RNA sequence: CGGGCGGUGUACUCCCAGAUGGCCUCCUCGUCCACGAGGGCGUCCUCGCCGAAGUAGGCGCCGUCGGCGACGGUCUGCAGGACGGCGUCGUCGCCGUAGGGGCCGGUGCCGAUCUGGUCGAUCCGGCCGUGGGCGAGCAGGAACACCCUGUCGGCGGGGCUGCCGAAGGAGGUGAGCUCCUGGCCGGCCUCGAAGUCGACCUGGUGGCACCGGGCGGCGAGCUCGGUCAGGACGUCGACGUCCUCGUACUCGCGCAGCAGCGGGAGCUCUCCGAGUUCGGCGGGGAUCACCUGGACCUGGGUGCCGGUCUUGAUGAACUCCACCCGGCCGUCACCGACGGAGUAGCUGAGCCGCCGGUUGACCCGGUACGUACCGCCCUGCACCGACACCCACGGGAGCAUCUUGAGCAACCACCGGGAGGUGAUCUCCUGCAUCUGCGGCGCGGACUUGGUCGUGGUUGCCAAGUUCCGCGCGGCCGAGGUCCCGAGACUGCGCUGCGGUGCCUGG
Numbered sequence: 001c002g003g004g005c006g007g008u009g010u011a012c013u014c015c016c017a018g019a020u021g022g023c024c025u026c027c028u029c030g031u032c033c034a035c036g037a038g039g040g041c042g043u044c045c046u047c048g049c050c051g052a053a054g055u056a057g058g059c060g061c062c063g064u065c066g067g068c069g070a071c072g073g074u075c076u077g078c079a080g081g082a083c084g085g086c087g088u089c090g091u092c093g094c095c096g097u098a099g100g101g102g103c104c105g106g107u108g109c110c111g112a113u114c115u116g117g118u119c120g121a122u123c124c125g126g127c128c129g130u131g132g133g134c135g136a137g138c139a140g141g142a143a144c145a146c147c148c149u150g151u152c153g154g155c156g157g158g159g160c161u162g163c164c165g166a167a168g169g170a171g172g173u174g175a176g177c178u179c180c181u182g183g184c185c186g187g188c189c190u191c192g193a194a195g196u197c198g199a200c201c202u203g204g205u206g207g208c209a210c211c212g213g214g215c216g217g218c219g220a221g222c223u224c225g226g227u228c229a230g231g232a233c234g235u236c237g238a239c240g241u242c243c244u245c246g247u248a249c250u251c252g253c254g255c256a257g258c259a260g261c262g263g264g265a266g267c268u269c270u271c272c273g274a275g276u277u278c279g280g281c282g283g284g285g286a287u288c289a290c291c292u293g294g295a296c297c298u299g300g301g302u303g304c305c306g307g308u309c310u311u312g313a314u315g316a317a318c319u320c321c322a323c324c325c326g327g328c329c330g331u332c333a334c335c336g337a338c339g340g341a342g343u344a345g346c347u348g349a350g351c352c353g354c355c356g357g358u359u360g361a362c363c364c365g366g367u368a369c370g371u372a373c374c375g376c377c378c379u380g381c382a383c384c385g386a387c388a389c390c391c392a393c394g395g396g397a398g399c400a401u402c403u404u405g406a407g408c409a410a411c412c413a414c415c416g417g418g419a420g421g422u423g424a425u426c427u428c429c430u431g432c433a434u435c436u437g438c439g440g441c442g443c444g445g446a447c448u449u450g451g452u453c454g455u456g457g458u459u460g461c462c463a464a465g466u467u468c469c470g471c472g473c474g475g476c477c478g479a480g481g482u483c484c485c486g487a488g489a490c491u492g493c494g495c496u497g498c499g500g501u502g503c504c505u506g507g
Stems, first nucleotide, its partner, number of pairs: 006390005016380001018328001021325002025322001028316002037311005047303004052298001054233002060227004065111004073103001075102002078099001082097005117222002122217002127212001129210002133205002136202002141197001143196002149192002154189001158185003162177001166173001234296003240290002244286002249283002253279002256277003260271001262269001329342001331340002353377001355375003361371002391431002394428004399423003403418002407415001437476002440473001442471005447465006477506002480504003484500003487496002
Shown here is a 507-nucleotide sequence from Streptomyces sp. WM4235, a member of the family "Saccharopolyspora sRNA 350". The match comes from Rfam's covariance-model search (156 bits). On this family, see Liu et al., PLoS One 2013: "Prediction and characterization of small non-coding RNAs related to secondary metabolites in Saccharopolyspora erythraea".